The record is a 127-nucleotide RNA from Cynoglossus semilaevis, which matches "Small nucleolar RNA SNORA71" in Rfam. The members of this family belong to the H/ACA class of snoRNAs which bind a number of proteins (including dyskerin, Gar1p and Nop10p) to form snoRNP complexes. This class of snoRNAs are thought to guide the sites of modification of uridines to pseudouridines by forming direct base pairing interactions with substrate RNAs. This family includes U71 (SNORA71), ACA39 (SNORA39) and ACA60 (SNORA60). NCBI's taxonomy places the organism under Eukaryota, Metazoa, Actinopterygii, Cynoglossidae, Cynoglossus. Rfam links the family to the GO terms RNA processing and nucleolus. For this family Rfam cites "The family of box ACA small nucleolar RNAs is defined by an evolutionarily conserved secondary structure and ubiquitous sequence elements essential for RNA accumulation" (Ganot et al., Genes Dev, 1997). The family's consensus secondary structure was predicted with PFOLD.

RNA sequence: CCCUGUAUCGAAAGUGAUCAUGACACCCUAGUGGUCAGGUCAUUGAUAGUACAGGAAGAGGAAACUGAGAGCUUUUCCCGUGUUUGAAGGACCCUCAGUUCCUUUGGAACCCUGACGCUCUCAGACA
Number, nucleotide and partner (000 for none) at each position: 001c000002c055003c054004u053005g052006u051007a050008u049009c000010g000011a000012a000013a044014g043015u042016g041017a040018u039019c038020a000021u000022g036023a035024c034025a000026c000027c000028c000029u000030a000031g000032u000033g000034g024035u023036c022037a000038g019039g018040u017041c016042a015043u014044u013045g000046a000047u000048a000049g008050u007051a006052c005053a004054g003055g002056a000057a000058g000059a000060g000061g000062a000063a000064a000065c000066u123067g122068a121069g120070a119071g118072c117073u000074u000075u000076u000077c000078c000079c000080g000081u000082g110083u109084u108085u107086g000087a104088a103089g102090g101091a100092c000093c000094c000095u000096c000097a000098g000099u000100u091101c090102c089103u088104u087105u000106g000107g085108a084109a083110c082111c000112c000113u000114g000115a000116c000117g072118c071119u070120c069121u068122c067123a066124g000125a000126c000127a000